[Rfam]
RNA: c-di-GMP-I-GGC riboswitch aptamer
RNA sequence: CACGAUAAGGGCAAACCCGCCGCGAGGCGGGGACGCAAAACCACGGGCCUCCAGCGCGGGAGGCGGCCGGGUUACCGAAA
Numbered sequence: 001c002a003c004g005a006u007a008a009g010g011g012c013a014a015a016c017c018c019g020c021c022g023c024g025a026g027g028c029g030g031g032g033a034c035g036c037a038a039a040a041c042c043a044c045g046g047g048c049c050u051c052c053a054g055c056g057c058g059g060g061a062g063g064c065g066g067c068c069g070g071g072u073u074a075c076c077g078a079a080a
Base pairs, nucleotide, nucleotide: 003077004076011036012035016031017030018029019028020027021026034066039073040072041071042070044069045068046067047064048063049062